[Rfam]
Nucleotides: 195
Base pairs, nucleotide, nucleotide: 006040007039008038009037049064051062052061053060054059085110086109133166134165136163137162139160140159141158143156144155145154146153177193178192179191180190181189
Number, partner (000 for none) and nucleotide at each position: 001000c002000a003000c004000a005000u006040c007039g008038u009037g010000g011000c012000c013000u014000u015000c016000g017000u018000a019000a020000u021000g022000a023000u024000c025000u026000a027000c028000g029000c030000g031000g032000u033000g034000a035000c036000c037009c038008a039007c040006g041000c042000c043000c044000c045000g046000a047000a048000g049064u050000a051062a052061c053060c054059c055000a056000c057000a058000g059054g060053g061052g062051u063000g064049a065000a066000c067000c068000c069000c070000a071000u072000c073000g074000a075000u076000c077000a078000c079000c080000c081000g082000a083000c084000c085110g086109g087000a088000g089000u090000c091000c092000g093000a094000a095000c096000a097000g098000u099000c100000g101000a102000c103000c104000u105000a106000g107000g108000c109086u110085c111000g112000c113000g114000c115000c116000a117000c118000a119000a120000c121000a122000u123000c124000a125000a126000a127000a128000a129000c130000g131000a132000c133166g134165g135000c136163c137162c138000u139160c140159g141158g142000c143156c144155g145154g146153g147000c148000g149000g150000c151000a152000u153146c154145c155144c156143g157000c158141c159140c160139g161000a162137g163136g164000a165134c166133c167000u168000g169000a170000c171000c172000a173000g174000c175000a176000a177193g178192g179191a180190a181189g182000g183000a184000c185000u186000u187000c188000g189181c190180u191179u192178c193177c194000u195000c